Shown here is a 215-nucleotide RNA from Pantoea sp. M_5, a member of the family "Gammaproteobacterial sRNA STnc100".
A search with the family's covariance model found it, with a score of 70 bits.
RNA sequence: UUGAGCUACGUGGCGCUAAUAUUACACCGCUGCGGUGAAUCCCCCUGUGCGGCGGGGCCCUUAAUUUUCAUUUGUUCAGCAUGAAAGUCCUUGUAGGGCGGAUCAGGUUAUGUUGCUGCUGAUCCACCGGGAGGCACCCGGCACCGCAGCGGUUCACAAAACAAAAAAUCUUUUUAUUCCUGGUUGGCUCACCUCGCGGUGGGCCUUUUUUGUAU
Numbered sequence: 001u002u003g004a005g006c007u008a009c010g011u012g013g014c015g016c017u018a019a020u021a022u023u024a025c026a027c028c029g030c031u032g033c034g035g036u037g038a039a040u041c042c043c044c045c046u047g048u049g050c051g052g053c054g055g056g057g058c059c060c061u062u063a064a065u066u067u068u069c070a071u072u073u074g075u076u077c078a079g080c081a082u083g084a085a086a087g088u089c090c091u092u093g094u095a096g097g098g099c100g101g102a103u104c105a106g107g108u109u110a111u112g113u114u115g116c117u118g119c120u121g122a123u124c125c126a127c128c129g130g131g132a133g134g135c136a137c138c139c140g141g142c143a144c145c146g147c148a149g150c151g152g153u154u155c156a157c158a159a160a161a162c163a164a165a166a167a168a169u170c171u172u173u174u175u176a177u178u179c180c181u182g183g184u185u186g187g188c189u190c191a192c193c194u195c196g197c198g199g200u201g202g203g204c205c206u207u208u209u210u211u212g213u214a215u
Stems, first nucleotide, its partner, number of pairs: 015157001029150002032147006042057004065083001087099005100125004104118003127141005175214001183208001186205006